[Rfam]
RNA sequence: UGUCUCCUCCUCCUCACCUCUCCCAUGAGGAUGGAUUAAGCCCGCCGAGCAUGGCGGGCUUUUUUUC
Number, nucleotide and partner (000 for none) at each position: 001u000002g000003u000004c000005u000006c000007c000008u035009c034010c033011u031012c030013c029014u028015c027016a000017c000018c000019u000020c000021u000022c000023c000024c000025a000026u000027g015028a014029g013030g012031a011032u000033g010034g009035a008036u000037u000038a000039a060040g059041c058042c057043c056044g055045c054046c053047g000048a000049g000050c000051a000052u000053g046054g045055c044056g043057g042058g041059c040060u039061u000062u000063u000064u000065u000066u000067c000
Betaproteobacteria toxic small RNA: a 67-nucleotide sequence from Noviherbaspirillum pedocola. The source organism's lineage runs through Bacteria, Pseudomonadota, Burkholderiales, Oxalobacteraceae and Noviherbaspirillum. About the family: Overexpression in amino aid rich medium attenuates growth, suggesting role in repressing amino acid intake and metabolism. A search with the family's covariance model found it, with a score of 51 bits. The family's consensus secondary structure was predicted with WAR.